RNA sequence: UGGCCGAUGAUGACGUGGACACUGUGCAAUCUGAGUUCUGGGAACCACACGAUGCAGCAUGUUCCAAGAGCCGACUGAGGCCG
Numbered sequence: 001u002g003g004c005c006g007a008u009g010a011u012g013a014c015g016u017g018g019a020c021a022c023u024g025u026g027c028a029a030u031c032u033g034a035g036u037u038c039u040g041g042g043a044a045c046c047a048c049a050c051g052a053u054g055c056a057g058c059a060u061g062u063u064c065c066a067a068g069a070g071c072c073g074a075c076u077g078a079g080g081c082c083g
Stems, first nucleotide, its partner, number of pairs: 002082004039047003

Source information: Shown here is an 83-nucleotide RNA from Tupaia belangeri, a member of the family "small Cajal body-specific RNA 18". The family has 20 seed sequences and 406 matches in Rfam 15.1. scaRNAs are a specific class of small nuclear RNAs which localise to the Cajal bodies and guide the modification of RNA polymerase II transcribed spliceosomal RNAs U1, U2, U4, U5 and U12. This C/D box domain U91 (also known as U4-8) was identified by Darzacq and is predicted to guide the 2'O-ribose methylation of U4 snRNA C8. By type it is a small Cajal body RNA. It scores 85 bits against the family's covariance model. The family's consensus secondary structure was predicted with PFOLD.